[Rfam]
RNA: Small nucleolar RNA R38
Organism: Fusarium flagelliforme
RNA sequence: UUGCGAAUGAUGAUCUAGCAUUUUUUCAUACAGUUAUCCCUGUCUGAAAUGUCUCUAAGAGACAAUUUGUUGAUACCGUCUAACUUCUGACCUCGCAA
Dot-bracket structure: (((((........................................................................................)))))
Numbered sequence: 001u002u003g004c005g006a007a008u009g010a011u012g013a014u015c016u017a018g019c020a021u022u023u024u025u026u027c028a029u030a031c032a033g034u035u036a037u038c039c040c041u042g043u044c045u046g047a048a049a050u051g052u053c054u055c056u057a058a059g060a061g062a063c064a065a066u067u068u069g070u071u072g073a074u075a076c077c078g079u080c081u082a083a084c085u086u087c088u089g090a091c092c093u094c095g096c097a098a
Stems, first nucleotide, its partner, number of pairs: 001098005